[Rfam]
RNA: mir-143 microRNA precursor family
Organism: Dissostichus mawsoni
RNA sequence: UUCCCUGCGGCCCAGGGUGCAGUGCUGCAUCUCCGGUCAGCUGGUAUCUGAGAUGAAGCACUGUAGCUCGGGACGGAGGACCG
Numbered sequence: 001u002u003c004c005c006u007g008c009g010g011c012c013c014a015g016g017g018u019g020c021a022g023u024g025c026u027g028c029a030u031c032u033c034c035g036g037u038c039a040g041c042u043g044g045u046a047u048c049u050g051a052g053a054u055g056a057a058g059c060a061c062u063g064u065a066g067c068u069c070g071g072g073a074c075g076g077a078g079g080a081c082c083g
Stems, first nucleotide, its partner, number of pairs: 011072003016067001018065009028055006035048003